[Rfam]
Rfam assigns this 143-nucleotide RNA from Alkalinema sp. CACIAM 70d to the family "c-di-AMP riboswitch aptamer (ydaO/yuaA leader)". NCBI's taxonomy places the organism under Bacteria, Cyanobacteriota, Leptolyngbyales, Leptolyngbyaceae, Alkalinema. Rfam's curators write: This family represents a conserved RNA structure found upstream of the ydaO and yuaA genes in Bacillus subtilis and related genes in other bacteria.
RNA sequence: UUGGGUUCAUGGUGAAUUCUCCAUUGAAAACGACUCAGAACGGAGGAACCAUCUAUCCUUGGGGCUAAUUCCAAGUUUCUUGGAAGAGACAUCUUCCCGUCUUAGCCCGUCAGCUAACUCCGUCGGCCAUGGGAGGAGUACUC
Numbered sequence: 001u002u003g004g005g006u007u008c009a010u011g012g013u014g015a016a017u018u019c020u021c022c023a024u025u026g027a028a029a030a031c032g033a034c035u036c037a038g039a040a041c042g043g044a045g046g047a048a049c050c051a052u053c054u055a056u057c058c059u060u061g062g063g064g065c066u067a068a069u070u071c072c073a074a075g076u077u078u079c080u081u082g083g084a085a086g087a088g089a090c091a092u093c094u095u096c097c098c099g100u101c102u103u104a105g106c107c108c109g110u111c112a113g114c115u116a117a118c119u120c121c122g123u124c125g126g127c128c129a130u131g132g133g134a135g136g137a138g139u140a141c142u143c
Stems, first nucleotide, its partner, number of pairs: 001037001040123006050061002062108003070084004087102004